[Rfam]
This 89-nucleotide RNA from Ignavigranum ruoffiae belongs to the Rfam family "THF (Tetrahydrofolate) riboswitch aptamer". Taxonomically the source falls in Ignavigranum (Bacteria, Bacillati, Bacillota, Lactobacillales). The literature on the family includes a 2010 paper in Chem Biol by Ames et al., "A eubacterial riboswitch class that senses the coenzyme tetrahydrofolate".
RNA sequence: AGCAGAGUAAGGAUUAAGCAUUAGCCCUUUGUGAUGGAAUGUUGCAUAAGGGGUGGAUGACCAUCGUGCUUAAUCCUGCAUUCGCUGCA
Numbered sequence: 001a002g003c004a005g006a007g008u009a010a011g012g013a014u015u016a017a018g019c020a021u022u023a024g025c026c027c028u029u030u031g032u033g034a035u036g037g038a039a040u041g042u043u044g045c046a047u048a049a050g051g052g053g054u055g056g057a058u059g060a061c062c063a064u065c066g067u068g069c070u071u072a073a074u075c076c077u078g079c080a081u082u083c084g085c086u087g088c089a
Stems, first nucleotide, its partner, number of pairs: 002088004010077012026052008037083005056065003